RNA sequence: GCCAGGUCGACGCCACAGCCGGCAGGAGCGGAGGACCCGAGCAGUACGGGGUCCGUCCGAAGGACGUGAGGACCCCUUGGGGUGAAGCCGCCACGGCGGCCGGGCAUUCUUCGCCUGCCCGAACCCGACAGGCACUCCUUCGCAGGCGGUCGACGAAGGAGUG
Numbered sequence: 001g002c003c004a005g006g007u008c009g010a011c012g013c014c015a016c017a018g019c020c021g022g023c024a025g026g027a028g029c030g031g032a033g034g035a036c037c038c039g040a041g042c043a044g045u046a047c048g049g050g051g052u053c054c055g056u057c058c059g060a061a062g063g064a065c066g067u068g069a070g071g072a073c074c075c076c077u078u079g080g081g082g083u084g085a086a087g088c089c090g091c092c093a094c095g096g097c098g099g100c101c102g103g104g105c106a107u108u109c110u111u112c113g114c115c116u117g118c119c120c121g122a123a124c125c126c127g128a129c130a131g132g133c134a135c136u137c138c139u140u141c142g143c144a145g146g147c148g149g150u151c152g153a154c155g156a157a158g159g160a161g162u163g
Base pairs, nucleotide, nucleotide: 011148012147013146014145019026020025028143029142030141031140032139033138038079039078040077041076080126081125082124088099089098090097091096102120103119104118105117
RNA: c-di-AMP riboswitch aptamer (ydaO/yuaA leader)
Organism: Streptomyces sp. ICBB 8177